[Rfam]
RNA sequence: CGGCCUUCCAUUGGGGAGUAGCCGCCCUGCUGCAUGCAACAUCAUGCUUGCAAAGUCAGCAGGGGCGUACGUCAACAGACUUGACUGGGUUUCCAGUUAUGGCGUGCGCAGUCAUGUACCACUACGGUACAGGGGCCUGGCGAGACUGAUGACC
Numbered sequence: 001c002g003g004c005c006u007u008c009c010a011u012u013g014g015g016g017a018g019u020a021g022c023c024g025c026c027c028u029g030c031u032g033c034a035u036g037c038a039a040c041a042u043c044a045u046g047c048u049u050g051c052a053a054a055g056u057c058a059g060c061a062g063g064g065g066c067g068u069a070c071g072u073c074a075a076c077a078g079a080c081u082u083g084a085c086u087g088g089g090u091u092u093c094c095a096g097u098u099a100u101g102g103c104g105u106g107c108g109c110a111g112u113c114a115u116g117u118a119c120c121a122c123u124a125c126g127g128u129a130c131a132g133g134g135g136c137c138u139g140g141c142g143a144g145a146c147u148g149a150u151g152a153c154c
Base pairs, nucleotide, nucleotide: 026063027062028061029060030059031058032057065109066108067107068106069105070104071103072102073101074100082099083098084097085096086095087094088093
Dot-bracket structure: .........................(((((((........................))))))).((((((((((.......(((((((....))))))))))))))))).............................................
Shown here is a 154-nucleotide RNA from Cupriavidus plantarum, a member of the family "Manganese Mn2+ riboswitch aptamer (yybP-ykoY)". From the family's description: This RNA was originally discovered in E. coli during a large scale screen and was named SraF. The family was later found to exist upstream of related families of protein genes in many bacteria, including the the yybP and ykoK genes in B. subtilis. The specific functions of these proteins are unknown, but this structured RNA element may be involved in their genetic regulation as a riboswitch. The family has 29 seed sequences and 1,126 matches in Rfam 15.1. Lineage of the source: Bacteria > Pseudomonadati > Betaproteobacteria > Burkholderiales > Cupriavidus. Gene Ontology term of the family: manganese ion binding.